[Rfam]
RNA sequence: GGCGUAAAGCGUCUGUAGGUGGCUUUUUAAGUCCGCCGUCAAAUCCCAGGGCUCAACCCUGGACAGGCGGUGGAAACUACCAAGCUGGAGUACGGUAGGGGCAGAGGGAAUUUCCGGUGGAGCGGUGAAAUGCGUAGAGAUCGGAAAGAACACCAACGGCGAAAGCACUCUGCUGGGCCGACACUGACACUGAGAGACGAAAGCUAGGGGAGCGAAUGGGAUUAGAUACCCCAGUAGUCCUAGCCGUAAACGAUGGAUACUAGGCGCUGUGCGUAUCGACCCGUGCAGUGCUGCAGCUAACGCGUUAAGUAUCCCGCCUGGGGAGUACGUUCGCACGAAUGAAACUCAAAGGAAU
Numbered sequence: 001g002g003c004g005u006a007a008a009g010c011g012u013c014u015g016u017a018g019g020u021g022g023c024u025u026u027u028u029a030a031g032u033c034c035g036c037c038g039u040c041a042a043a044u045c046c047c048a049g050g051g052c053u054c055a056a057c058c059c060u061g062g063a064c065a066g067g068c069g070g071u072g073g074a075a076a077c078u079a080c081c082a083a084g085c086u087g088g089a090g091u092a093c094g095g096u097a098g099g100g101g102c103a104g105a106g107g108g109a110a111u112u113u114c115c116g117g118u119g120g121a122g123c124g125g126u127g128a129a130a131u132g133c134g135u136a137g138a139g140a141u142c143g144g145a146a147a148g149a150a151c152a153c154c155a156a157c158g159g160c161g162a163a164a165g166c167a168c169u170c171u172g173c174u175g176g177g178c179c180g181a182c183a184c185u186g187a188c189a190c191u192g193a194g195a196g197a198c199g200a201a202a203g204c205u206a207g208g209g210g211a212g213c214g215a216a217u218g219g220g221a222u223u224a225g226a227u228a229c230c231c232c233a234g235u236a237g238u239c240c241u242a243g244c245c246g247u248a249a250a251c252g253a254u255g256g257a258u259a260c261u262a263g264g265c266g267c268u269g270u271g272c273g274u275a276u277c278g279a280c281c282c283g284u285g286c287a288g289u290g291c292u293g294c295a296g297c298u299a300a301c302g303c304g305u306u307a308a309g310u311a312u313c314c315c316g317c318c319u320g321g322g323g324a325g326u327a328c329g330u331u332c333g334c335a336c337g338a339a340u341g342a343a344a345c346u347c348a349a350a351g352g353a354a355u
Base pairs, nucleotide, nucleotide: 001318002317003316009315011198012197013196014195016192018191019190020189022085023084024083025082028079030078031077032074033073034072035071036070037069038068039067040066046062047061048060049059050058051057089185090184091183093180094179095178096177100174101173102172103171104170105169106168107151111147112146113145114144115143116142117141118140122133123132124131159166160165203244204243205242206241207240208239212238213237217233218232219231220230255314256313257312258311259310260309263292264291265290266289267288268287269286270285271284272283273282296303297302320347321346322345329340330339331338332337
Bacterial small subunit ribosomal RNA: a 355-nucleotide part of an RNA. Rfam 15.1 lists 42,628 matches to the family in 10,626 species. Its family is annotated with structural constituent of ribosome and ribosome in the Gene Ontology. The match comes from Rfam's covariance-model search (1534 bits).